[Rfam]
RNA sequence: AUUAUACCUCGUUAGGUGAGGCUCCUGUACGAAGAUACGCUGCUGCCCAAAAAUGUCCAAAGACGCCAAUGGGUUAACAGAAUUCAUCGACAUAAGGUGUUUUCUAAUGCAGCUGGUUUUAUAAACCUAUGUCGUGCAGUGCUAAAGCUCAACGAAUGGAGGAACGUG
Numbered sequence: 001a002u003u004a005u006a007c008c009u010c011g012u013u014a015g016g017u018g019a020g021g022c023u024c025c026u027g028u029a030c031g032a033a034g035a036u037a038c039g040c041u042g043c044u045g046c047c048c049a050a051a052a053a054u055g056u057c058c059a060a061a062g063a064c065g066c067c068a069a070u071g072g073g074u075u076a077a078c079a080g081a082a083u084u085c086a087u088c089g090a091c092a093u094a095a096g097g098u099g100u101u102u103u104c105u106a107a108u109g110c111a112g113c114u115g116g117u118u119u120u121a122u123a124a125a126c127c128u129a130u131g132u133c134g135u136g137c138a139g140u141g142c143u144a145a146a147g148c149u150c151a152a153c154g155a156a157u158g159g160a161g162g163a164a165c166g167u168g
Base pairs, nucleotide, nucleotide: 005164007162008161009160010159011153012152013095015149016148017147020143021142022141025139026138027137028136029135030134031133032132039113040112041111042110043109045074046073047072048071049070054065055064056063057062080104081103082102086098087097088096115127116126117125
Overview: M-box riboswitch aptamer (ykoK leader): a 168-nucleotide RNA sequence from Texcoconibacillus texcoconensis. From the family's description: M-box riboswitch, also know as ykoK leader is described as a metaloregulatory RNA that sense divalent metals and function as a genetic control element of genes related to divalent metal transport in bacteria. Pairs were carried over by alignment from the consensus structure.